[Rfam]
RNA sequence: GACCGGUUAUGUCGGAUGGUUCCGGCCGCGGGCUUCAAACCUGUCGGACAAACAAUAAAAUGUUUGCUUGUCAGUUCGAUUCUGAAACCGGUC
Numbered sequence: 001g002a003c004c005g006g007u008u009a010u011g012u013c014g015g016a017u018g019g020u021u022c023c024g025g026c027c028g029c030g031g032g033c034u035u036c037a038a039a040c041c042u043g044u045c046g047g048a049c050a051a052a053c054a055a056u057a058a059a060a061u062g063u064u065u066g067c068u069u070g071u072c073a074g075u076u077c078g079a080u081u082c083u084g085a086a087a088c089c090g091g092u093c
Base pairs, nucleotide, nucleotide: 001093002092003091004090005089006088007087008086011026012025013024014023015022016021027047028044029043030042031041032040049066050065051064052063053062071085072084073083074082
The family of this 93-nucleotide sequence from Smithella sp. SCADC is "Selenocysteine transfer RNA".
The family's consensus secondary structure is taken from published work.
Its family is annotated with triplet codon-amino acid adaptor activity in the Gene Ontology.
The literature on the family includes a 2000 paper in FEBS Lett by Mizutani and Goto, "Eukaryotic selenocysteine tRNA has the 9/4 secondary structure".
The organism belongs to Smithella, within Bacteria.